Annotation:
The record is a 29-nucleotide sequence, which matches "L31-Firmicutes ribosomal protein leader" in Rfam. Rfam's curators put it in the seed alignment. Clan: Ribosomal Protein L31 Leader clan. The base pairs follow the family's consensus structure, which is taken from published work.
Nucleotides: 029
Base pairs, nucleotide, nucleotide: 001020002019003018004017005016007014008013
Number, partner (000 for none) and nucleotide at each position: 001020c002019u003018c004017u005016g006000g007014c008013a009000a010000g011000a012000c013008u014007g015000g016005c017004a018003g019002g020001g021000a022000g023000a024000a025000a026000a027000g028000a029000g